[Rfam]
RNA sequence: ACAGUCUGAAAAUCACUUGGGGUCUCCUGUGCACCCUGGUGCGAUAACUGUGCUGACAGCAGAGGGAGCAUUAAACUCAUUGCCCACGGUAAAGUGUGGCGAGUGAUACCCAUGUUCCUAUAAUC
Numbered sequence: 001a002c003a004g005u006c007u008g009a010a011a012a013u014c015a016c017u018u019g020g021g022g023u024c025u026c027c028u029g030u031g032c033a034c035c036c037u038g039g040u041g042c043g044a045u046a047a048c049u050g051u052g053c054u055g056a057c058a059g060c061a062g063a064g065g066g067a068g069c070a071u072u073a074a075a076c077u078c079a080u081u082g083c084c085c086a087c088g089g090u091a092a093a094g095u096g097u098g099g100c101g102a103g104u105g106a107u108a109c110c111c112a113u114g115u116u117c118c119u120a121u122a123a124u125c
Stems, first nucleotide, its partner, number of pairs: 006050001008048001010045001014041003021034001024031001065118001067116005077106005085098003
This 125-nucleotide RNA from Bucco capensis belongs to the Rfam family "Small nucleolar RNA ACA64". Taxonomically the source falls in Bucco (Eukaryota, Craniata, Teleostomi, Euteleostomi). A search with the family's covariance model found it, with a score of 54 bits. Pairs were carried over by alignment from the consensus structure, which was predicted with WAR.